[Rfam]
RNA sequence: ACAGUUUUGAAUUUUCGUGUAUCAAGUGUAGUAUCUGUUCUUAUCAGUGUGACAACUGAUAUGUCUCCAAGUGGAGACUUGCUUGUCACAUCAAUUUUUGCUGGGGAAGUGUCUUCACGAGCUUGCUCUGGAGCCUUCAUGUGUUGCGCUGGCAUGGCACUGAGCCAGUGGCAGCACACCCUAU
Number, nucleotide and partner (000 for none) at each position: 001a000002c000003a000004g000005u000006u000007u021008u017009g016010a000011a000012u000013u000014u000015u000016c009017g008018u000019g000020u000021a007022u000023c000024a000025a000026g000027u000028g000029u000030a000031g000032u000033a000034u000035c000036u000037g000038u000039u000040c000041u000042u061043a060044u059045c058046a057047g056048u000049g000050u000051g000052a000053c000054a000055a000056c047057u046058g045059a044060u043061a042062u000063g078064u077065c076066u075067c074068c073069a000070a000071g000072u000073g068074g067075a066076g065077a064078c063079u000080u000081g000082c000083u000084u000085g000086u000087c000088a000089c000090a000091u000092c000093a000094a000095u000096u000097u000098u000099u000100g000101c000102u000103g000104g000105g000106g138107a137108a136109g135110u000111g000112u132113c131114u000115u000116c000117a000118c000119g128120a127121g126122c000123u000124u000125g000126c121127u120128c119129u000130g000131g113132a112133g000134c000135c109136u108137u107138c106139a000140u000141g177142u176143g175144u174145u173146g172147c000148g169149c168150u167151g166152g165153c164154a000155u000156g000157g000158c000159a000160c000161u000162g000163a000164g153165c152166c151167a150168g149169u148170g000171g000172c146173a145174g144175c143176a142177c141178a000179c000180c000181c000182u000183a000184u000
The record is a 184-nucleotide sequence from Cladocopium goreaui, which matches "U2 spliceosomal RNA" in Rfam.
A search with the family's covariance model found it, with a score of 118 bits.
About the family: U2 is a small nuclear RNA (snRNA) component of the spliceosome (involved in pre-mRNA splicing). Complementary binding between U2 snRNA (in an area lying towards the 5' end but 3' to hairpin I) and the branchpoint sequence (BPS) of the intron results the bulging out of an unpaired adenosine, on the BPS, which initiates a nucleophilic attack at the intronic 5' splice site, thus starting the first of two transesterification reactions that mediate splicing.
Clan: U2 clan.
The family's RNA type in Rfam is spliceosomal small nuclear RNA.
Its family is annotated with pre-mRNA branch point binding, mRNA branch site recognition and U2 snRNP in the Gene Ontology.
The family has 208 seed sequences and 71,512 matches in Rfam 15.1.